[Rfam]
A member of the RNA family "Nuclear RNase P" from Pichia inconspicua, 427 nucleotides long. A search with the family's covariance model found it, with a score of 50 bits. Lineage of the source: Eukaryota > Opisthokonta > saccharomyceta > Pichiales > Pichia.
RNA sequence: AGCGGCACUAGUCCGUGCGUACUCGCCCACAGAAGGGGCGCUUGUCGUCGUUGCUGUCGUUGUUUCUGCAGCACGACACGCCCACUUGUCGCGAGUGGGAAAUUCGGUGGUAUACCCCGUCUCCACGUGACGUGCCUUUUCUUCGGAGAGACCCAGCGCGUCACGUGGUUUCUGGCUUGUUCUUUUGACGAGCCUCCUCUUGAGAGGUUUCCUGGGCGCGCAAGCGCUGGGCAGUUCCACAAGAAAUUACUAGGGGCUGGGCAGGGGGGUUUUAUGGGCUUAGGCCCACCAUUUUCCCCUUCCACCCCCCUAAUGGGAGUGUUCUGCGGACGGUUGGCCUUGUAAGUAAUUUAUUUGCAAGGCUGUUGAGUGCAAUGCACGGAUGCCGUGUAAACGGCAAACUCGAUACCGAUCACUAUGUUGCUCU
Numbered sequence: 001a002g003c004g005g006c007a008c009u010a011g012u013c014c015g016u017g018c019g020u021a022c023u024c025g026c027c028c029a030c031a032g033a034a035g036g037g038g039c040g041c042u043u044g045u046c047g048u049c050g051u052u053g054c055u056g057u058c059g060u061u062g063u064u065u066c067u068g069c070a071g072c073a074c075g076a077c078a079c080g081c082c083c084a085c086u087u088g089u090c091g092c093g094a095g096u097g098g099g100a101a102a103u104u105c106g107g108u109g110g111u112a113u114a115c116c117c118c119g120u121c122u123c124c125a126c127g128u129g130a131c132g133u134g135c136c137u138u139u140u141c142u143u144c145g146g147a148g149a150g151a152c153c154c155a156g157c158g159c160g161u162c163a164c165g166u167g168g169u170u171u172c173u174g175g176c177u178u179g180u181u182c183u184u185u186u187g188a189c190g191a192g193c194c195u196c197c198u199c200u201u202g203a204g205a206g207g208u209u210u211c212c213u214g215g216g217c218g219c220g221c222a223a224g225c226g227c228u229g230g231g232c233a234g235u236u237c238c239a240c241a242a243g244a245a246a247u248u249a250c251u252a253g254g255g256g257c258u259g260g261g262c263a264g265g266g267g268g269g270u271u272u273u274a275u276g277g278g279c280u281u282a283g284g285c286c287c288a289c290c291a292u293u294u295u296c297c298c299c300u301u302c303c304a305c306c307c308c309c310c311u312a313a314u315g316g317g318a319g320u321g322u323u324c325u326g327c328g329g330a331c332g333g334u335u336g337g338c339c340u341u342g343u344a345a346g347u348a349a350u351u352u353a354u355u356u357g358c359a360a361g362g363c364u365g366u367u368g369a370g371u372g373c374a375a376u377g378c379a380c381g382g383a384u385g386c387c388g389u390g391u392a393a394a395c396g397g398c399a400a401a402c403u404c405g406a407u408a409c410c411g412a413u414c415a416c417u418a419u420g421u422u423g424c425u426c427u
Stems, first nucleotide, its partner, number of pairs: 001427002004424001007421002012383007021096005036083005105411005118332004196207004215228005231327004237321001251312005384399006